[Rfam]
RNA sequence: UUACAGAACGAUUUAACUAAUAAACUAUUUUGUCCCUCUCCGACAAAGAACAAUUCGUUCUUUGACAGAGAGGGACAAAACAGUUUAUUAGUUAAGUAAAACGUAUU
Numbered sequence: 001u002u003a004c005a006g007a008a009c010g011a012u013u014u015a016a017c018u019a020a021u022a023a024a025c026u027a028u029u030u031u032g033u034c035c036c037u038c039u040c041c042g043a044c045a046a047a048g049a050a051c052a053a054u055u056c057g058u059u060c061u062u063u064g065a066c067a068g069a070g071a072g073g074g075a076c077a078a079a080a081c082a083g084u085u086u087a088u089u090a091g092u093u094a095a096g097u098a099a100a101a102c103g104u105a106u107u
Stems, first nucleotide, its partner, number of pairs: 002105003006102001011097016028080001029069006049059003
RNA: mir-8517 microRNA precursor family
Organism: Plutella xylostella